[Rfam]
RNA sequence: AAUAAUAUUAAAGCGCCAGAACUUAAGUUGAGUAAAUGAGGGAAUAAAGGAAACUCAAACUAGACGUUUGAGUAAGUUCGACUAACUAAAUCAUAGAUUUAAGAAGUUAAGGAAACUCAAACUAAAUGUUUGAGUAAGUUCGCCUUAACCAAAUCGUAGAUUUGGAGGCUCACUUAAGUUGACGAGGAUGGGGAGUAUCGAGAAUUCGGCGGAUGUCCCACGGUAUUUAUGUACUACCGAUAACAGUUAGCAAAUCUAAAAAGCGAUUUUUAGCACAAAUCUAACUAGGUACAUGAU
Numbered sequence: 001a002a003u004a005a006u007a008u009u010a011a012a013g014c015g016c017c018a019g020a021a022c023u024u025a026a027g028u029u030g031a032g033u034a035a036a037u038g039a040g041g042g043a044a045u046a047a048a049g050g051a052a053a054c055u056c057a058a059a060c061u062a063g064a065c066g067u068u069u070g071a072g073u074a075a076g077u078u079c080g081a082c083u084a085a086c087u088a089a090a091u092c093a094u095a096g097a098u099u100u101a102a103g104a105a106g107u108u109a110a111g112g113a114a115a116c117u118c119a120a121a122c123u124a125a126a127u128g129u130u131u132g133a134g135u136a137a138g139u140u141c142g143c144c145u146u147a148a149c150c151a152a153a154u155c156g157u158a159g160a161u162u163u164g165g166a167g168g169c170u171c172a173c174u175u176a177a178g179u180u181g182a183c184g185a186g187g188a189u190g191g192g193g194a195g196u197a198u199c200g201a202g203a204a205u206u207c208g209g210c211g212g213a214u215g216u217c218c219c220a221c222g223g224u225a226u227u228u229a230u231g232u233a234c235u236a237c238c239g240a241u242a243a244c245a246g247u248u249a250g251c252a253a254a255u256c257u258a259a260a261a262a263g264c265g266a267u268u269u270u271u272a273g274c275a276c277a278a279a280u281c282u283a284a285c286u287a288g289g290u291a292c293a294u295g296a297u
Base pairs, nucleotide, nucleotide: 020180021179022178023177024176025175026174027173189220190219191218192217193216198209199208200207201206221239222238223237224236225235245286246285247284248283249282256273257272258271259270260269261268262267